Shown here is a 182-nucleotide RNA from a Vallitaleaceae bacterium, a member of the family "Lysine riboswitch aptamer".
The source organism's lineage runs through Bacteria, Bacillati, Bacillota, Clostridia and Vallitaleaceae.
Rfam's curators write: Riboswitches are metabolite binding domains within certain messenger RNAs that serve as precision sensors for their corresponding targets.
RNA sequence: UAAUACAGUAGAGGCGCACUUUUGAUCAGUACUCAUUUGGAUAUGUUCAGGCAUAAAUGAAAAAUGAAGAAAGGAAACGGUGCCGAAGAAAGAAAUCCCUGAGGAUUUUUUGUCUGGUUGAUGAGUUAAGAGCUUUUCAAUUGUCAUUGAGUUAUAGAACUAAAUGGAGUGCUAUGAUCAAA
Numbered sequence: 001u002a003a004u005a006c007a008g009u010a011g012a013g014g015c016g017c018a019c020u021u022u023u024g025a026u027c028a029g030u031a032c033u034c035a036u037u038u039g040g041a042u043a044u045g046u047u048c049a050g051g052c053a054u055a056a057a058u059g060a061a062a063a064a065u066g067a068a069g070a071a072a073g074g075a076a077a078c079g080g081u082g083c084c085g086a087a088g089a090a091a092g093a094a095a096u097c098c099c100u101g102a103g104g105a106u107u108u109u110u111u112g113u114c115u116g117g118u119u120g121a122u123g124a125g126u127u128a129a130g131a132g133c134u135u136u137u138c139a140a141u142u143g144u145c146a147u148u149g150a151g152u153u154a155u156a157g158a159a160c161u162a163a164a165u166g167g168a169g170u171g172c173u174a175u176g177a178u179c180a181a182a
Stems, first nucleotide, its partner, number of pairs: 008175004016083005022077002033067006087115003090111008116142006123135004144167005150161001